[Rfam]
RNA sequence: UGAAGGGUGACCUCCAUGGCUGAAGGCAGUCGGCGGCAAACUUCUGCUCCGAGGGACACGAAUCUCAUACAAGGCUAGGUGGCACUGGAUGAGUCUGCCGAACAAGACAAAGUCCUUACUGCCGAAGAUGUCACAGAGUAAAUGAGGCGGAGACAUGGAAGGAAAGUCUGUACU
Numbered sequence: 001u002g003a004a005g006g007g008u009g010a011c012c013u014c015c016a017u018g019g020c021u022g023a024a025g026g027c028a029g030u031c032g033g034c035g036g037c038a039a040a041c042u043u044c045u046g047c048u049c050c051g052a053g054g055g056a057c058a059c060g061a062a063u064c065u066c067a068u069a070c071a072a073g074g075c076u077a078g079g080u081g082g083c084a085c086u087g088g089a090u091g092a093g094u095c096u097g098c099c100g101a102a103c104a105a106g107a108c109a110a111a112g113u114c115c116u117u118a119c120u121g122c123c124g125a126a127g128a129u130g131u132c133a134c135a136g137a138g139u140a141a142a143u144g145a146g147g148c149g150g151a152g153a154c155a156u157g158g159a160a161g162g163a164a165a166g167u168c169u170g171u172a173c174u
Stems, first nucleotide, its partner, number of pairs: 001016002004013003029174001032171001036167002041161006047152005063147006074139003079134006087115004093108004
Rfam assigns this 174-nucleotide sequence from Ornithinibacillus caprae to the family "Group II catalytic intron D1-D4-3". The base pairs follow the family's consensus structure. A search with the family's covariance model found it, with a score of 120 bits.